[Rfam]
RNA: Small nucleolar RNA SNORD99
Organism: Labeo rohita
RNA sequence: CCUGAUCAAGGAUGACAGCCUUUUAAUGGUGACUGCUGGAUGAAACUUGCGGAUAUGGGACUGAGAUCAGUA
Numbered sequence: 001c002c003u004g005a006u007c008a009a010g011g012a013u014g015a016c017a018g019c020c021u022u023u024u025a026a027u028g029g030u031g032a033c034u035g036c037u038g039g040a041u042g043a044a045a046c047u048u049g050c051g052g053a054u055a056u057g058g059g060a061c062u063g064a065g066a067u068c069a070g071u072a
Stems, first nucleotide, its partner, number of pairs: 002070004